The record is a 73-nucleotide RNA from Denticeps clupeoides, which matches "mir-205 microRNA precursor family" in Rfam. The literature on the family includes a 2008 paper in Genome Res by Murchison et al., "Conservation of small RNA pathways in platypus". The family's consensus secondary structure was predicted with RNAalifold. Rfam links the family to the GO terms miRNA-mediated post-transcriptional gene silencing and RISC complex.
RNA sequence: GUAUUUUAUCCUUCAUUCCACCGGAGUCUGUCAUUGAUCAAUCAGAUUUCAGUGGUGUGAAGUGUAUGAGACA
Numbered sequence: 001g002u003a004u005u006u007u008a009u010c011c012u013u014c015a016u017u018c019c020a021c022c023g024g025a026g027u028c029u030g031u032c033a034u035u036g037a038u039c040a041a042u043c044a045g046a047u048u049u050c051a052g053u054g055g056u057g058u059g060a061a062g063u064g065u066a067u068g069a070g071a072c073a
Stems, first nucleotide, its partner, number of pairs: 011062006019054003023050004028045003